[Rfam]
RNA sequence: UACGCCUCGGGGUUCGUGCCAGGAGUGCGUUUGCAAAGAGGCCGACAUGUUUGCGUUAUUGCAAUGUUAACACUGUAAAUGCACUAUCUGGUACGACAUCCCGGGGCGU
Numbered sequence: 001u002a003c004g005c006c007u008c009g010g011g012g013u014u015c016g017u018g019c020c021a022g023g024a025g026u027g028c029g030u031u032u033g034c035a036a037a038g039a040g041g042c043c044g045a046c047a048u049g050u051u052u053g054c055g056u057u058a059u060u061g062c063a064a065u066g067u068u069a070a071c072a073c074u075g076u077a078a079a080u081g082c083a084c085u086a087u088c089u090g091g092u093a094c095g096a097c098a099u100c101c102c103g104g105g106g107c108g109u
Stems, first nucleotide, its partner, number of pairs: 008103004015095009025084001027082006040076001
Dot-bracket structure: .......((((...(((((((((.(.((((((.......(...................................))))))).)..)))))))))....))))......